[Rfam]
A member of the RNA family "mir-210 microRNA precursor family" from Leptobrachium leishanense, 99 nucleotides long.
RNA sequence: UCCAGAUGUAGGUAAGCCACUGACUAACGCACAUUGCGCUGCUGCUAAAAUGCCACUGUGCGUGUGACAGCGGCUAACCAGCCUCUCGGACUGCAGCCA
Numbered sequence: 001u002c003c004a005g006a007u008g009u010a011g012g013u014a015a016g017c018c019a020c021u022g023a024c025u026a027a028c029g030c031a032c033a034u035u036g037c038g039c040u041g042c043u044g045c046u047a048a049a050a051u052g053c054c055a056c057u058g059u060g061c062g063u064g065u066g067a068c069a070g071c072g073g074c075u076a077a078c079c080a081g082c083c084u085c086u087c088g089g090a091c092u093g094c095a096g097c098c099a
Base pairs, nucleotide, nucleotide: 005085006084008082009081011079012078015075016074017073018072020070021069022068024066025064026063028062029061030060031059032058033057035055036054
For this family Rfam cites "Kaposi's sarcoma-associated herpesvirus expresses an array of viral microRNAs in latently infected cells" (Cai et al., Proc Natl Acad Sci U S A, 2005). The match comes from Rfam's covariance-model search (69 bits). The base pairs follow the family's consensus structure, which was predicted with WAR.